[Rfam]
RNA sequence: ACUUAGUCUUAGGGCGGGGUGAAAUUCCCCACCGGCGGUAUCCCAGUUUCUGGGGAGCCCGCGAGCGCUUCUUUAUUUUAAGAAGGUCAGCAGAUCUGGUGAGAGGCCAGGGCCGACGGUAAUAGUCCGGAUGAAAGAGUUGAAAA
Numbered sequence: 001a002c003u004u005a006g007u008c009u010u011a012g013g014g015c016g017g018g019g020u021g022a023a024a025u026u027c028c029c030c031a032c033c034g035g036c037g038g039u040a041u042c043c044c045a046g047u048u049u050c051u052g053g054g055g056a057g058c059c060c061g062c063g064a065g066c067g068c069u070u071c072u073u074u075a076u077u078u079u080a081a082g083a084a085g086g087u088c089a090g091c092a093g094a095u096c097u098g099g100u101g102a103g104a105g106g107c108c109a110g111g112g113c114c115g116a117c118g119g120u121a122a123u124a125g126u127c128c129g130g131a132u133g134a135a136a137g138a139g140u141u142g143a144a145a146a
Stems, first nucleotide, its partner, number of pairs: 003144002006141001008139003017029003031126002033115002035062004057113002065091002095111005117129003
Background
This 146-nucleotide RNA sequence from Desulfosporosinus acididurans belongs to the Rfam family "FMN riboswitch aptamer (RFN element)". The match comes from Rfam's covariance-model search (106 bits). Pairs were carried over by alignment from the consensus structure, which is taken from published work. Rfam describes the family as follows. The RFN element is a highly conserved domain that is found frequently in the 5'-untranslated regions of prokaryotic mRNAs that encode for flavin mononucleotide (FMN) biosynthesis and transport proteins. Lineage of the source: Bacteria > Bacillati > Bacillota > Desulfitobacteriaceae > Desulfosporosinus.